[Rfam]
RNA sequence: ACAGAAUCCUCUAGAUGGAGGAUGAGAAGCUCAACCGAGGUUCGACGACUGAGCAAAGCGAAGGCGAACAGCGAAUAGCUGGCCCCGAAGGGGUGAGGCCCGACGGGCCGAAUAAUCCUCCAUCCCCAGCCA
Numbered sequence: 001a002c003a004g005a006a007u008c009c010u011c012u013a014g015a016u017g018g019a020g021g022a023u024g025a026g027a028a029g030c031u032c033a034a035c036c037g038a039g040g041u042u043c044g045a046c047g048a049c050u051g052a053g054c055a056a057a058g059c060g061a062a063g064g065c066g067a068a069c070a071g072c073g074a075a076u077a078g079c080u081g082g083c084c085c086c087g088a089a090g091g092g093g094u095g096a097g098g099c100c101c102g103a104c105g106g107g108c109c110g111a112a113u114a115a116u117c118c119u120c121c122a123u124c125c126c127c128a129g130c131c132a
Stems, first nucleotide, its partner, number of pairs: 015123007023115001032095002035093002041089004050060002069081004